Shown here is a 179-nucleotide RNA sequence from Actinobacillus indolicus, a member of the family "GcvB RNA". NCBI's taxonomy places the organism under Bacteria, Pseudomonadati, Pasteurellales, Pasteurellaceae, Actinobacillus. By type it is a non-coding RNA gene. The base pairs follow the family's consensus structure, which is taken from published work. The gcvB gene encodes a small untranslated RNA involved in expression of the dipeptide and oligopeptide transport systems in Escherichia coli. Included several unknown homologues in alignment (Bateman A pers obs). It base-pairs with SorC. This interaction triggers the degradation of GcvB by RNase E, alleviating the GcvB-mediated mRNA repression of other amino acid-related transport and metabolic genes.
RNA sequence: CCGUACUUAGAUGGAUAGUGAUAGCUGUCUUUAGCUAUUUUUGAAUUUUAAGUAUGAUGUUGUGUUUGCAUAUUGGUCUAGGUAACUAGACUAGAGUAACAAAAGUUACUCAUUUCACUUCCUGUAUAUUUUGAACCCUUUUUGGUUUAGCUACCGCCCACUUUGGGCGGUUUUUUUAU
Numbered sequence: 001c002c003g004u005a006c007u008u009a010g011a012u013g014g015a016u017a018g019u020g021a022u023a024g025c026u027g028u029c030u031u032u033a034g035c036u037a038u039u040u041u042u043g044a045a046u047u048u049u050a051a052g053u054a055u056g057a058u059g060u061u062g063u064g065u066u067u068g069c070a071u072a073u074u075g076g077u078c079u080a081g082g083u084a085a086c087u088a089g090a091c092u093a094g095a096g097u098a099a100c101a102a103a104a105g106u107u108a109c110u111c112a113u114u115u116c117a118c119u120u121c122c123u124g125u126a127u128a129u130u131u132u133g134a135a136c137c138c139u140u141u142u143u144g145g146u147u148u149a150g151c152u153a154c155c156g157c158c159c160a161c162u163u164u165g166g167g168c169g170g171u172u173u174u175u176u177u178a179u
Stems, first nucleotide, its partner, number of pairs: 009048004017041002020039008074093008095110006126148001128146003153171007
Dot-bracket structure: ........((((....((.((((((((....))))))))))...)))).........................((((((((....)))))))).((((((....))))))...............(.(((.............))).)....(((((((.....)))))))........